Overview:
Rfam assigns this 112-nucleotide sequence from Clostridium sp. C105KSO13 to the family "TPP riboswitch aptamer (THI element)".
[Rfam]
RNA sequence: AAAUGAAUGCAGGGGAACUAAUUAAGUUGAGAAGGAAGCGUACACAGCUGUCAAUCCUGACCCUUUGAACCUGUCGGUUAAAACCGUCGUAGGGAGCAAAAUGACAAAGUAU
Numbered sequence: 001a002a003a004u005g006a007a008u009g010c011a012g013g014g015g016a017a018c019u020a021a022u023u024a025a026g027u028u029g030a031g032a033a034g035g036a037a038g039c040g041u042a043c044a045c046a047g048c049u050g051u052c053a054a055u056c057c058u059g060a061c062c063c064u065u066u067g068a069a070c071c072u073g074u075c076g077g078u079u080a081a082a083a084c085c086g087u088c089g090u091a092g093g094g095a096g097c098a099a100a101a102u103g104a105c106a107a108a109g110u111a112u
Stems, first nucleotide, its partner, number of pairs: 008098003011064004016058001017027003034057003070093004075086003
The family's consensus secondary structure is taken from published work. On this family, see Rodionov et al., J Biol Chem 2002: "Comparative genomics of thiamin biosynthesis in procaryotes. New genes and regulatory mechanisms".